[Rfam]
RNA sequence: GGCGUACCUGCUCCUCCCCCCCGGAGCAUGGUGCGUCGACGGCCCCGGUUGUCCCCCCGACCGGGGCCGUCCCCU
Numbered sequence: 001g002g003c004g005u006a007c008c009u010g011c012u013c014c015u016c017c018c019c020c021c022c023g024g025a026g027c028a029u030g031g032u033g034c035g036u037c038g039a040c041g042g043c044c045c046c047g048g049u050u051g052u053c054c055c056c057c058c059g060a061c062c063g064g065g066g067c068c069g070u071c072c073c074c075u
Base pairs, nucleotide, nucleotide: 002037004034005033006032007031008030009028010027011026012025013024038071039070040069041068042067043066044065045064046063047062048061049060050059

A member of the RNA family "6C RNA" from Phycicoccus sp. Root563, 75 nucleotides long. Taxonomically the source falls in Phycicoccus (Bacteria, Bacillati, Actinomycetes, Intrasporangiaceae). A search with the family's covariance model found it, with a score of 51 bits. It is annotated as a cis-regulatory element. Rfam links the family to the GO term sporulation. For this family Rfam cites "Identification of 22 candidate structured RNAs in bacteria using the CMfinder comparative genomics pipeline" (Weinberg et al., Nucleic Acids Res, 2007).